[Rfam]
RNA sequence: CCAGGAGGCUGGGCGACCGCGGCAUAGCGAUAUGGCGAGGAAAGUCCGGGCUCCACGAAAAGACGGUGCCAGCUAACGGCUGGCGGAGGCAACUCCAGGGAAAGUGCAACAGAGAGCAGGUCGCGUUUGUCUUAGGACUUGAGGCUUCGGCCGCGUGACAGUGAAAGGGUGCGGUAAGAGCGCACCGCGUCCCCGGCAACGGGCGACGGCAUGGUAAACCCCACCGGGAGCAAGACCGAAUAGGGACGGCACGGAGCGCAAGUUCCAGGGCAUUUUUCGGCUCGAUCGUCCGGGUUGGUUGCUUGAGGCCAUGAGCGAUCAUGGUCCUAGAUGAAUGGUCGCCCAGUUCCGGCUUGCCGGGAUGGACAGAACCCGGCUUACAGGCCUCCUGGCAUU
Numbered sequence: 001c002c003a004g005g006a007g008g009c010u011g012g013g014c015g016a017c018c019g020c021g022g023c024a025u026a027g028c029g030a031u032a033u034g035g036c037g038a039g040g041a042a043a044g045u046c047c048g049g050g051c052u053c054c055a056c057g058a059a060a061a062g063a064c065g066g067u068g069c070c071a072g073c074u075a076a077c078g079g080c081u082g083g084c085g086g087a088g089g090c091a092a093c094u095c096c097a098g099g100g101a102a103a104g105u106g107c108a109a110c111a112g113a114g115a116g117c118a119g120g121u122c123g124c125g126u127u128u129g130u131c132u133u134a135g136g137a138c139u140u141g142a143g144g145c146u147u148c149g150g151c152c153g154c155g156u157g158a159c160a161g162u163g164a165a166a167g168g169g170u171g172c173g174g175u176a177a178g179a180g181c182g183c184a185c186c187g188c189g190u191c192c193c194c195g196g197c198a199a200c201g202g203g204c205g206a207c208g209g210c211a212u213g214g215u216a217a218a219c220c221c222c223a224c225c226g227g228g229a230g231c232a233a234g235a236c237c238g239a240a241u242a243g244g245g246a247c248g249g250c251a252c253g254g255a256g257c258g259c260a261a262g263u264u265c266c267a268g269g270g271c272a273u274u275u276u277u278c279g280g281c282u283c284g285a286u287c288g289u290c291c292g293g294g295u296u297g298g299u300u301g302c303u304u305g306a307g308g309c310c311a312u313g314a315g316c317g318a319u320c321a322u323g324g325u326c327c328u329a330g331a332u333g334a335a336u337g338g339u340c341g342c343c344c345a346g347u348u349c350c351g352g353c354u355u356g357c358c359g360g361g362a363u364g365g366a367c368a369g370a371a372c373c374c375g376g377c378u379u380a381c382a383g384g385c386c387u388c389c390u391g392g393c394a395u396u
Stems, first nucleotide, its partner, number of pairs: 001392010011381001012343007020037002023034004042379003046376005051230004059277004064226005069083005084098001085096004099221002104219002106215002122155004127150003168186006187210001188208004193202003234300004244291006268283004307326008
RNA: Bacterial RNase P class A